[Rfam]
Annotation:
Shown here is a 93-nucleotide RNA sequence from Terrisporobacter othiniensis, a member of the family "Glycine riboswitch aptamer". Lineage of the source: Bacteria > Clostridia > Peptostreptococcales > Peptostreptococcaceae > Terrisporobacter. It scores 38 bits against the family's covariance model.
RNA sequence: CUCUGGAAAGACUUUGCUUAUUAAUUGGUAAAAGUCACCGACGAAGAAAAUGAGUAUUAAAACUCACUAAAACUUUCAGGUAAAUGAACAGAG
Numbered sequence: 001c002u003c004u005g006g007a008a009a010g011a012c013u014u015u016g017c018u019u020a021u022u023a024a025u026u027g028g029u030a031a032a033a034g035u036c037a038c039c040g041a042c043g044a045a046g047a048a049a050a051u052g053a054g055u056a057u058u059a060a061a062a063c064u065c066a067c068u069a070a071a072a073c074u075u076u077c078a079g080g081u082a083a084a085u086g087a088a089c090a091g092a093g
Base pairs, nucleotide, nucleotide: 001093002092003091004090005089011035012034013033014032037081038080039079040077041076044075045074046073050068